A member of the RNA family "Pseudomonas sRNA P27" from Azotobacter chroococcum, 185 nucleotides long. It is annotated as a small RNA. The match comes from Rfam's covariance-model search (170 bits). On this family, see Livny et al., Nucleic Acids Res 2006: "Identification of 17 Pseudomonas aeruginosa sRNAs and prediction of sRNA-encoding genes in 10 diverse pathogens using the bioinformatic tool sRNAPredict2".
RNA sequence: CGGGUUUACUCCUGGAUGUUACCGUUUCGCCCAGCAGAGCCGGACGCGCUUUGGUGUCUGAUUCGGUACGAAUCGGGAGCACCAUCUGCGUAGGCUGAGGGUUUAAGGCUUGCGCCGCCUACGGUCUUGGAUAGCCCCCGCCAGGCAGGGACCCCAAUAGUCGGCGUGACGGAUCAGUCCGCCAC
Number, nucleotide and partner (000 for none) at each position: 001c000002g154003g153004g152005u151006u150007u149008a000009c000010u000011c145012c144013u143014g142015g000016a000017u000018g000019u000020u000021a000022c000023c048024g047025u000026u000027u000028c046029g045030c000031c043032c042033a000034g040035c039036a000037g000038a000039g035040c034041c000042g032043g031044a000045c029046g028047c024048g023049c000050u000051u000052u084053g083054g082055u081056g080057u079058c076059u075060g074061a073062u072063u071064c070065g000066g000067u000068a000069c000070g064071a063072a062073u061074c060075g059076g058077g000078a000079g057080c056081a055082c054083c053084a052085u000086c000087u000088g141089c140090g139091u000092a000093g136094g135095c134096u133097g000098a000099g000100g000101g132102u131103u130104u129105a128106a127107g126108g125109c124110u123111u000112g000113c000114g000115c000116c000117g000118c000119c000120u000121a000122c000123g110124g109125u108126c107127u106128u105129g104130g103131a102132u101133a096134g095135c094136c093137c000138c000139c090140g089141c088142c014143a013144g012145g011146c000147a000148g000149g007150g006151a005152c004153c003154c002155c000156a000157a000158u000159a000160g000161u000162c000163g000164g000165c000166g000167u184168g183169a000170c181171g180172g179173a000174u000175c000176a000177g000178u000179c172180c171181g170182c000183c168184a167185c000